[Rfam]
RNA sequence: UCAGGACAAACCGAAAACCUGUAAAAGAGUAGGUA
Numbered sequence: 001u002c003a004g005g006a007c008a009a010a011c012c013g014a015a016a017a018c019c020u021g022u023a024a025a026a027g028a029g030u031a032g033g034u035a
Stems, first nucleotide, its partner, number of pairs: 002021004010034003

Description
Shown here is a 35-nucleotide RNA from Pedobacter nutrimenti, a member of the family "DUF805b RNA". A search with the family's covariance model found it, with a score of 39 bits. The family's consensus secondary structure is taken from published work. By type it is a cis-regulatory element.